[Rfam]
Hairy RNA localisation element (HLE): a 131-nucleotide RNA sequence from Drosophila gunungcola. This family represents the hairy localisation element (HLE) found in Drosophila species. HLE is located in the 3'-UTR of the hairy gene and contains two stem-loops. HLE is essential for the mediation of apical localisation and the two stem-loop structures act to allow the recognition of hairy mRNA by the localisation machinery. The organism belongs to elegans subgroup (in: flies), within Eukaryota. The literature on the family includes a 2003 paper in EMBO J by Bullock et al., "The Drosophila hairy RNA localization signal modulates the kinetics of cytoplasmic mRNA transport". Gene Ontology term of the family: RNA localization.

RNA sequence: GUAGACAUUUCACAUCAUUCGCCGGGAUAACGCAAAUGUUGCUUCGAAGUGCCGCACACAUGCGAAUCCUUAGACGGUCCACAGCCUCGUCGUCCCUCAUUUCUCGGCUCAGAUCCUGGAAAUCCAGCGGC
Number, nucleotide and partner (000 for none) at each position: 001g000002u000003a000004g000005a000006c051007a050008u049009u048010u047011c046012a000013c000014a000015u000016c038017a037018u036019u035020c032021g031022c000023c000024g000025g000026g000027a000028u000029a000030a000031c021032g020033c000034a000035a019036a018037u017038g016039u000040u000041g000042c000043u000044u000045c000046g011047a010048a009049g008050u007051g006052c000053c000054g000055c000056a000057c000058a000059c000060a000061u000062g000063c000064g000065a000066a000067u000068c000069c000070u000071u000072a000073g000074a000075c000076g000077g000078u000079c000080c000081a000082c000083a000084g000085c000086c000087u000088c000089g131090u130091c129092g128093u127094c000095c000096c000097u000098c000099a123100u122101u121102u120103c119104u118105c000106g116107g115108c000109u000110c000111a000112g000113a000114u000115c107116c106117u000118g104119g103120a102121a101122a100123u099124c000125c000126a000127g093128c092129g091130g090131c089